[Rfam]
This 50-nucleotide RNA sequence from Rhizobium gallicum belongs to the Rfam family "Guanidine-II riboswitch aptamer (mini-ykkC)". Gene Ontology term of the family: regulation of gene expression.

RNA sequence: CGACCGGGACGACCCGGUCGUUUCCCUGGGGCAAUACCGGGACGGCCCGG
Numbered sequence: 001c002g003a004c005c006g007g008g009a010c011g012a013c014c015c016g017g018u019c020g021u022u023u024c025c026c027u028g029g030g031g032c033a034a035u036a037c038c039g040g041g042a043c044g045g046c047c048c049g050g
Stems, first nucleotide, its partner, number of pairs: 001020008037050005
From the family's description: Simpler in structure and has fewer highly conserved nucleotide positions than the ykkC-yxkD leader.